[Rfam]
RNA sequence: GGAGCAGGCCAGACCGCCGCCUGUGCAAGUGCCGAAAGGCCGCAUGGGAGGAAGGUCCGGACUGCACAGAGCAGCGUAGCGGGUAACGCCCGUCCACCGCAAGGUGCGGAUCAGAGCCACAGAGACGAGUCUUGACGGGACGCCCAGCCAGGGUGUUCUAUGACGGGUCGGCGCAAGCCGACCGGCCGCUGGUGCAAGCCAGCGGGCUUGGGCGCAAGCCCAACGGCGUAGCACCCUUAACGGGGCCAACGCCCCGUUAAGGGUGAAACGCGGCAAUCUCUACGCGCAGCAACACCAAAUAGGCCAGCAUUGAAGCGGCUCGCUGAGCUGGCGGGUAGGUGGCAUUGAGCAGGGGUGGCAACACCCCCGCCCAGAGGAAUGGCGGUCACGCGGUGGGCUUCGCAAGAGGCCUGCCGUGCACAGAAUCCGGCCUAUCGGCUUGCUCCACAC
Numbered sequence: 001g002g003a004g005c006a007g008g009c010c011a012g013a014c015c016g017c018c019g020c021c022u023g024u025g026c027a028a029g030u031g032c033c034g035a036a037a038g039g040c041c042g043c044a045u046g047g048g049a050g051g052a053a054g055g056u057c058c059g060g061a062c063u064g065c066a067c068a069g070a071g072c073a074g075c076g077u078a079g080c081g082g083g084u085a086a087c088g089c090c091c092g093u094c095c096a097c098c099g100c101a102a103g104g105u106g107c108g109g110a111u112c113a114g115a116g117c118c119a120c121a122g123a124g125a126c127g128a129g130u131c132u133u134g135a136c137g138g139g140a141c142g143c144c145c146a147g148c149c150a151g152g153g154u155g156u157u158c159u160a161u162g163a164c165g166g167g168u169c170g171g172c173g174c175a176a177g178c179c180g181a182c183c184g185g186c187c188g189c190u191g192g193u194g195c196a197a198g199c200c201a202g203c204g205g206g207c208u209u210g211g212g213c214g215c216a217a218g219c220c221c222a223a224c225g226g227c228g229u230a231g232c233a234c235c236c237u238u239a240a241c242g243g244g245g246c247c248a249a250c251g252c253c254c255c256g257u258u259a260a261g262g263g264u265g266a267a268a269c270g271c272g273g274c275a276a277u278c279u280c281u282a283c284g285c286g287c288a289g290c291a292a293c294a295c296c297a298a299a300u301a302g303g304c305c306a307g308c309a310u311u312g313a314a315g316c317g318g319c320u321c322g323c324u325g326a327g328c329u330g331g332c333g334g335g336u337a338g339g340u341g342g343c344a345u346u347g348a349g350c351a352g353g354g355g356u357g358g359c360a361a362c363a364c365c366c367c368c369g370c371c372c373a374g375a376g377g378a379a380u381g382g383c384g385g386u387c388a389c390g391c392g393g394u395g396g397g398c399u400u401c402g403c404a405a406g407a408g409g410c411c412u413g414c415c416g417u418g419c420a421c422a423g424a425a426u427c428c429g430g431c432c433u434a435u436c437g438g439c440u441u442g443c444u445c446c447a448c449a450c
Stems, first nucleotide, its partner, number of pairs: 001446010011435001012387007020048007053433003057430005062289004069321004074285005079093005094108001095106004109280002114278002116274003131262002134258006141251002293341004303332006314324003349370002352367006

Shown here is a 450-nucleotide sequence from Ideonella sp. MAG2, a member of the family "Bacterial RNase P class A".
It scores 187 bits against the family's covariance model.
Pairs were carried over by alignment from the consensus structure, which is taken from published work.
Rfam classes the family as a ribozyme.